Overview
The family of this 88-nucleotide sequence from Rossellomorea aquimaris is "c-di-GMP-I riboswitch aptamer". The family is grouped with related families in Rfam's "c-di-GMP_I riboswitch clan".

RNA sequence: CUGCGAUAAUGGCAAACUAAUUCGAAAGAUUAGGACGCAAAGCCACGGAUCUAACGUUUUCCGAAACUAUGACCGCCGGGCUGCCGAA
Numbered sequence: 001c002u003g004c005g006a007u008a009a010u011g012g013c014a015a016a017c018u019a020a021u022u023c024g025a026a027a028g029a030u031u032a033g034g035a036c037g038c039a040a041a042g043c044c045a046c047g048g049a050u051c052u053a054a055c056g057u058u059u060u061c062c063g064a065a066a067c068u069a070u071g072a073c074c075g076c077c078g079g080g081c082u083g084c085c086g087a088a
Stems, first nucleotide, its partner, number of pairs: 012038002017033004022029002041082004046078003050072002056067004

Taxonomically the source falls in Rossellomorea (Bacteria, Bacillati, Bacillota, Bacillaceae).